This 183-nucleotide RNA sequence from Serratia rubidaea belongs to the Rfam family "Manganese Mn2+ riboswitch aptamer (yybP-ykoY)". About the family: This RNA was originally discovered in E. coli during a large scale screen and was named SraF. The family was later found to exist upstream of related families of protein genes in many bacteria, including the the yybP and ykoK genes in B. subtilis. The specific functions of these proteins are unknown, but this structured RNA element may be involved in their genetic regulation as a riboswitch. Taxonomically the source falls in Serratia (Bacteria, Pseudomonadati, Gammaproteobacteria, Yersiniaceae).
RNA sequence: GCGCCCGUCAUUGGGGAGUAGCCGGUUUCUGAUUAACGAAAAUCAGAAACGCCCGUAUCAACAUACUCGUUUUGUCGUCUGAAACGUGGUGCGGGCAGCCAGAGUCAGGUUGGCGAGACCAUAGGCACGUAACUCCGUCGUUUGGUUGGGGGUGGGUUGCGUGUAUAUGGAGCCGCCCGGCCG
Numbered sequence: 001g002c003g004c005c006c007g008u009c010a011u012u013g014g015g016g017a018g019u020a021g022c023c024g025g026u027u028u029c030u031g032a033u034u035a036a037c038g039a040a041a042a043u044c045a046g047a048a049a050c051g052c053c054c055g056u057a058u059c060a061a062c063a064u065a066c067u068c069g070u071u072u073u074g075u076c077g078u079c080u081g082a083a084a085c086g087u088g089g090u091g092c093g094g095g096c097a098g099c100c101a102g103a104g105u106c107a108g109g110u111u112g113g114c115g116a117g118a119c120c121a122u123a124g125g126c127a128c129g130u131a132a133c134u135c136c137g138u139c140g141u142u143u144g145g146u147u148g149g150g151g152g153u154g155g156g157u158u159g160c161g162u163g164u165a166u167a168u169g170g171a172g173c174c175g176c177c178c179g180g181c182c183g
Stems, first nucleotide, its partner, number of pairs: 025050008051096010068086007
Dot-bracket structure: ........................((((((((..........))))))))((((((((((.......(((((((.....))))))))))))))))).......................................................................................